[Rfam]
This 69-nucleotide sequence from Gallus gallus belongs to the Rfam family "Small nucleolar RNA SNORD82". Gene Ontology terms of the family: RNA processing and nucleolus. The family's consensus secondary structure was predicted with PFOLD. Rfam's curators put it in the seed alignment. From the family's description: snoRNA U82 or Z25 is found in both humans and mice.
Nucleotides: 069
Base pairs, nucleotide, nucleotide: 002069003068004067005066006065
Number, partner (000 for none) and nucleotide at each position: 001000a002069g003068c004067a005066c006065a007000a008000a009000u010000g011000a012000u013000g014000a015000u016000u017000a018000u019000a020000a021000g022000g023000g024000a025000c026000u027000u028000a029000a030000u031000a032000c033000u034000g035000a036000a037000a038000u039000g040000u041000g042000a043000u044000g045000u046000g047000a048000u049000u050000u051000u052000u053000g054000a055000g056000c057000a058000g059000a060000a061000c062000u063000g064000a065006u066005g067004u068003g069002c